The record is an 89-nucleotide sequence from Salvia splendens, which matches "Small nucleolar RNA R44/J54/Z268 family" in Rfam. It scores 75 bits against the family's covariance model. The base pairs follow the family's consensus structure, which was predicted with PFOLD. Lineage of the source: Eukaryota > Streptophyta > Tracheophyta > Mesangiospermae > core Calosphace. By type it is a C/D-box small nucleolar RNA.
[Rfam]
RNA sequence: GAGGCAAGUGAUGAUACAAAAGACAGGGACAUCAGAACUCCUUCUGGAGAAAAGAUGACUUAGUCUAAUGGCAAUCUCUCUGAUGCUCA
Numbered sequence: 001g002a003g004g005c006a007a008g009u010g011a012u013g014a015u016a017c018a019a020a021a022g023a024c025a026g027g028g029a030c031a032u033c034a035g036a037a038c039u040c041c042u043u044c045u046g047g048a049g050a051a052a053a054g055a056u057g058a059c060u061u062a063g064u065c066u067a068a069u070g071g072c073a074a075u076c077u078c079u080c081u082g083a084u085g086c087u088c089a
Stems, first nucleotide, its partner, number of pairs: 003087004
Dot-bracket structure: ..((((.............................................................................))))..